[Rfam]
RNA sequence: UCUUAAUAGUAAUUGUUACGUCGUAUAAUUUCGGGAAUAGGGCCCGAGCGUUUCUACCAAGCUACCGUAAAUGGCUUGACUACGAGGUAAUUGAUAGAUGGA
Number, nucleotide and partner (000 for none) at each position: 001u000002c000003u000004u000005a000006a000007u000008a000009g000010u000011a000012a000013u000014u000015g000016u000017u000018a088019c087020g000021u085022c084023g083024u082025a081026u000027a000028a000029u000030u048031u047032c046033g045034g044035g043036a000037a000038u000039a000040g000041g000042g000043c035044c034045c033046g032047a031048g030049c000050g000051u000052u000053u000054c000055u000056a000057c000058c078059a077060a076061g075062c074063u073064a072065c000066c000067g000068u000069a000070a000071a000072u064073g063074g062075c061076u060077u059078g058079a000080c000081u025082a024083c023084g022085a021086g000087g019088u018089a000090a000091u000092u000093g000094a000095u000096a000097g000098a000099u000100g000101g000102a000
This 102-nucleotide sequence from Rossellomorea aquimaris belongs to the Rfam family "Purine riboswitch aptamer".
The family is grouped with related families in Rfam's "Purine riboswitches".
A search with the family's covariance model found it, with a score of 88 bits.
NCBI's taxonomy places the organism under Bacteria, Bacillati, Bacillota, Bacillaceae, Rossellomorea.